[Rfam]
The record is a 506-nucleotide sequence from Rickettsia massiliae, which matches "Alphaproteobacteria transfer-messenger RNA" in Rfam. From the family's description: Bacterial tmRNA, also known as 10Sa RNA or SsrA, is named for its dual tRNA and mRNA-like properties. Its role is to liberate the mRNA from a stalled ribosome. To accomplish this part of the tmRNA is used as a reading frame that ends in a translation stop signal. The broken mRNA is replaced in the ribosome by the tmRNA and translation of the tmRNA leads to addition of a proteolysis tag to the incomplete protein enabling recognition by a protease. Recently a number of permuted tmRNA genes have been found encoded in two parts. tmRNAs have been identified in eubacteria and some chloroplasts but are absent from archaeal and eukaryote nuclear genomes. Rfam's curators put it in the seed alignment. It is annotated as a non-coding RNA gene. NCBI's taxonomy places the organism under Bacteria, Pseudomonadota, Alphaproteobacteria, Rickettsia, Rickettsia massiliae.
RNA sequence: GACCUUUACAUUUUAAUCAAAUUAAGGCAUAAUAUUUGGUGCUAAUUAUAGCUAUAGUAAUAAACGUAAUUUAGAAUAGAGGUUGCGGACUCGGGGGCAGUACCCGACGCCUCCACCAAAACUUUCUAAAUAACUUGCUCCUAAAGGUAAUUUGUACGUCGAUCCGGUACUCGAAUCCUCACGUUACUUGCGUGUACGCUGCGGUUCUGCGUUCCGUGUCGCCUUCAAAUGCCUCUUUAUUAGCUACGUCAUUUAGAAAAUAAAUAUAUAAUAACUCUUAAAGAAUAGACAAUACGAAGUUCAUCGAGUAUUUUUGGGGGGCGAAAUAGGAUCGACGUGCCUAAUAAAAAGAUUGCUUUUACUCGGGAUGAUUCCGCCGAUGGCUUUUGCCAUAUGGGUCAAAACAAAGAAACGCAAACGAUAAUAAUCGUUCUGUAGGUCGUUUAGCUUUAGCAGCUUAACCCCUACGCGGCUGGAGGGUGUGCCGGGCAACAGAAAAACCCUCG
Numbered sequence: 001g002a003c004c005u006u007u008a009c010a011u012u013u014u015a016a017u018c019a020a021a022u023u024a025a026g027g028c029a030u031a032a033u034a035u036u037u038g039g040u041g042c043u044a045a046u047u048a049u050a051g052c053u054a055u056a057g058u059a060a061u062a063a064a065c066g067u068a069a070u071u072u073a074g075a076a077u078a079g080a081g082g083u084u085g086c087g088g089a090c091u092c093g094g095g096g097g098c099a100g101u102a103c104c105c106g107a108c109g110c111c112u113c114c115a116c117c118a119a120a121a122c123u124u125u126c127u128a129a130a131u132a133a134c135u136u137g138c139u140c141c142u143a144a145a146g147g148u149a150a151u152u153u154g155u156a157c158g159u160c161g162a163u164c165c166g167g168u169a170c171u172c173g174a175a176u177c178c179u180c181a182c183g184u185u186a187c188u189u190g191c192g193u194g195u196a197c198g199c200u201g202c203g204g205u206u207c208u209g210c211g212u213u214c215c216g217u218g219u220c221g222c223c224u225u226c227a228a229a230u231g232c233c234u235c236u237u238u239a240u241u242a243g244c245u246a247c248g249u250c251a252u253u254u255a256g257a258a259a260a261u262a263a264a265u266a267u268a269u270a271a272u273a274a275c276u277c278u279u280a281a282a283g284a285a286u287a288g289a290c291a292a293u294a295c296g297a298a299g300u301u302c303a304u305c306g307a308g309u310a311u312u313u314u315u316g317g318g319g320g321g322c323g324a325a326a327u328a329g330g331a332u333c334g335a336c337g338u339g340c341c342u343a344a345u346a347a348a349a350a351g352a353u354u355g356c357u358u359u360u361a362c363u364c365g366g367g368a369u370g371a372u373u374c375c376g377c378c379g380a381u382g383g384c385u386u387u388u389g390c391c392a393u394a395u396g397g398g399u400c401a402a403a404a405c406a407a408a409g410a411a412a413c414g415c416a417a418a419c420g421a422u423a424a425u426a427a428u429c430g431u432u433c434u435g436u437a438g439g440u441c442g443u444u445u446a447g448c449u450u451u452a453g454c455a456g457c458u459u460a461a462c463c464c465c466u467a468c469g470c471g472g473c474u475g476g477a478g479g480g481u482g483u484g485c486c487g488g489g490c491a492a493c494a495g496a497a498a499a500a501c502c503c504u505c506g
Stems, first nucleotide, its partner, number of pairs: 041052004056363005066356007081341003085338003091107005108323007364379003369401003373398003470487004477504005